[Rfam]
RNA: tRNA
Organism: Desulfofarcimen acetoxidans
RNA sequence: GCCGGAGUGGCGGAACUGGCAGACGCACAGGACUUAAAAUCCUGCGAGGGUAAUUCCUCGUACCGGUUCGAUUCCGGUUUCCGGCA
Numbered sequence: 001g002c003c004g005g006a007g008u009g010g011c012g013g014a015a016c017u018g019g020c021a022g023a024c025g026c027a028c029a030g031g032a033c034u035u036a037a038a039a040u041c042c043u044g045c046g047a048g049g050g051u052a053a054u055u056c057c058u059c060g061u062a063c064c065g066g067u068u069c070g071a072u073u074c075c076g077g078u079u080u081c082c083g084g085c086a
Base pairs, nucleotide, nucleotide: 001085002084003083004082005081006080007079010026011025012024028044029043030042031041032040062078063077064076065075066074